[Rfam]
Annotation: Rfam assigns this 98-nucleotide RNA sequence from Astyanax mexicanus to the family "Small nucleolar RNA SNORD16". It is annotated as a C/D-box small nucleolar RNA. The family's consensus secondary structure was predicted with PFOLD. The match comes from Rfam's covariance-model search (96 bits). NCBI's taxonomy places the organism under Eukaryota, Deuterostomia, Gnathostomata, Teleostei, Astyanax. Its Rfam clan is "SNORD16 clan". A reference for the family is Huttenhofer et al. (2001), "RNomics: an experimental approach that identifies 201 candidates for novel, small, non-messenger RNAs in mouse", EMBO J.

RNA sequence: UGCUGUGAUGGUGUAAUUUGCGUCUUACUCUGCACACAGCGACAGUUGCCUGCUGUCACAUGCUUGUGUUGAAGGUUGACGAACAUUGAUUCUGAGCA
Numbered sequence: 001u002g003c004u005g006u007g008a009u010g011g012u013g014u015a016a017u018u019u020g021c022g023u024c025u026u027a028c029u030c031u032g033c034a035c036a037c038a039g040c041g042a043c044a045g046u047u048g049c050c051u052g053c054u055g056u057c058a059c060a061u062g063c064u065u066g067u068g069u070u071g072a073a074g075g076u077u078g079a080c081g082a083a084c085a086u087u088g089a090u091u092c093u094g095a096g097c098a
Stems, first nucleotide, its partner, number of pairs: 001098003021081004030071001032069003039063002041057005